[Rfam]
RNA sequence: GAUUGAACAUAUGAAAGCAACAUUGUUCACUCGAUACAUUCUUCCCAAAUUAAAUUUGUAAUUUCCUCCUUGUAGUACAAAAGGUUAGGUCUACAAGGCUCAAAUUACAUGACAUUAUA
Numbered sequence: 001g002a003u004u005g006a007a008c009a010u011a012u013g014a015a016a017g018c019a020a021c022a023u024u025g026u027u028c029a030c031u032c033g034a035u036a037c038a039u040u041c042u043u044c045c046c047a048a049a050u051u052a053a054a055u056u057u058g059u060a061a062u063u064u065c066c067u068c069c070u071u072g073u074a075g076u077a078c079a080a081a082a083g084g085u086u087a088g089g090u091c092u093a094c095a096a097g098g099c100u101c102a103a104a105u106u107a108c109a110u111g112a113c114a115u116u117a118u119a
Base pairs, nucleotide, nucleotide: 001032002031003029006027007026008025009024057112068098069097070096071095072094073093074092075091078088079086

About this RNA:
A member of the RNA family "Small nucleolar RNA snoR104" from Taxus chinensis, 119 nucleotides long. Rfam classes the family as an H/ACA-box small nucleolar RNA. The family's consensus secondary structure was predicted with WAR. Taxonomically the source falls in Taxus (Eukaryota, Euphyllophyta, Pinopsida, Taxaceae).